[Rfam]
Shown here is a 57-nucleotide RNA sequence, a member of the family "L20-Deltaproteobacteria ribosomal protein leader".
Nucleotides: 057
Stems, first nucleotide, its partner, number of pairs: 003039003007036002010033008
Number, partner (000 for none) and nucleotide at each position: 001000c002000c003039c004038c005037c006000u007036g008035a009000a010033c011032c012031g013030u014029g015028a016027g017026a018000a019000a020000a021000c022000g023000g024000c025000c026017u027016c028015u029014u030013g031012c032011g033010g034000a035008u036007c037005g038004g039003g040000u041000a042000a043000u044000u045000u046000a047000a048000a049000a050000u051000a052000a053000a054000g055000g056000a057000g

A reference for the family is Eckert and Weinberg (2020), "Discovery of 20 novel ribosomal leader candidates in bacteria and archaea", BMC Microbiol.